[Rfam]
RNA sequence: AAACAGGCAGCUCCGCUCCUCUCUGCCGCGUCUAUCCGGCCCUCUGAUGCACUUCCUGUUUAGUAGGGCCGGAUAGACGCGGCAGAGAGGAGCGGAGCUGCCUGUUUGAAUAGCA
Dot-bracket structure: .....(((((((.((.((((((((((((((((((((((((((.......................)))))))))))))))))))))))))).)).))))))).............
Notes: The record is a 115-nucleotide RNA from Microcaecilia unicolor, which matches "mraW RNA" in Rfam. The organism belongs to Microcaecilia, within Eukaryota. Pairs were carried over by alignment from the consensus structure, which is taken from published work.